[Rfam]
RNA: Small nucleolar RNA SNORA29
RNA sequence: AUUCCCGUUUGACUACCACAUUUUCUCCUAGUAGAUUUUGGUGGCUAUGCUUAUGGGAUAGAUUAAAAUUGCCAUGAUCUGAAGAGGGAGGAUCUAUUUGUGCCCUCCUCCUAUAUGAAAUGGCGGGACAGAACAUU
Numbered sequence: 001a002u003u004c005c006c007g008u009u010u011g012a013c014u015a016c017c018a019c020a021u022u023u024u025c026u027c028c029u030a031g032u033a034g035a036u037u038u039u040g041g042u043g044g045c046u047a048u049g050c051u052u053a054u055g056g057g058a059u060a061g062a063u064u065a066a067a068a069u070u071g072c073c074a075u076g077a078u079c080u081g082a083a084g085a086g087g088g089a090g091g092a093u094c095u096a097u098u099u100g101u102g103c104c105c106u107c108c109u110c111c112u113a114u115a116u117g118a119a120a121u122g123g124c125g126g127g128a129c130a131g132a133a134c135a136u137u
Stems, first nucleotide, its partner, number of pairs: 004057004016044004071124004089112004